[Rfam]
RNA sequence: GGUGGCCUAUGAUGAUCUGCAAAUUUUGCCUACAUUGUUUGAUUUCUAUUCAUGAUAAAAAAUUGCAUCCCUUCUGAGGCCUUC
Dot-bracket structure: ((.((((......................................................................)))).))
Numbered sequence: 001g002g003u004g005g006c007c008u009a010u011g012a013u014g015a016u017c018u019g020c021a022a023a024u025u026u027u028g029c030c031u032a033c034a035u036u037g038u039u040u041g042a043u044u045u046c047u048a049u050u051c052a053u054g055a056u057a058a059a060a061a062a063u064u065g066c067a068u069c070c071c072u073u074c075u076g077a078g079g080c081c082u083u084c
Stems, first nucleotide, its partner, number of pairs: 001084002004081004

A member of the RNA family "Small nucleolar RNA SNORD34" from Macleaya cordata, 84 nucleotides long. On this family, see Galardi et al., Mol Cell Biol 2002: "Purified box C/D snoRNPs are able to reproduce site-specific 2'-O-methylation of target RNA in vitro". It is annotated as a C/D-box small nucleolar RNA. The family has 14 seed sequences and 1,319 matches in Rfam 15.1. Lineage of the source: Eukaryota > Viridiplantae > Streptophytina > Spermatophyta > Macleaya. A search with the family's covariance model found it, with a score of 69 bits. Rfam's curators write: snoRNA U34 is found in intron 5 of the ribosomal protein L13a gene in humans.